[Rfam]
RNA: Molybdenum/Tungsten riboswitch aptamer (Moco RNA motif)
RNA sequence: AAUAAAUAUGUUCUCCGAGCCAUAUAUUCCUAAGGAUAUAACUAUGGAAAUAUGGCCUGAACCUAGAGUUCACAGGGUUUAUUUGGAAACGAAUAGGCCUCCUACUUCUUUGGAAAGGAGAAUAAGGUCUUAUUUA
Numbered sequence: 001a002a003u004a005a006a007u008a009u010g011u012u013c014u015c016c017g018a019g020c021c022a023u024a025u026a027u028u029c030c031u032a033a034g035g036a037u038a039u040a041a042c043u044a045u046g047g048a049a050a051u052a053u054g055g056c057c058u059g060a061a062c063c064u065a066g067a068g069u070u071c072a073c074a075g076g077g078u079u080u081a082u083u084u085g086g087a088a089a090c091g092a093a094u095a096g097g098c099c100u101c102c103u104a105c106u107u108c109u110u111u112g113g114a115a116a117g118g119a120g121a122a123u124a125a126g127g128u129c130u131u132a133u134u135u136a
Stems, first nucleotide, its partner, number of pairs: 011122006019056007027049004034043002058072005075100011101113002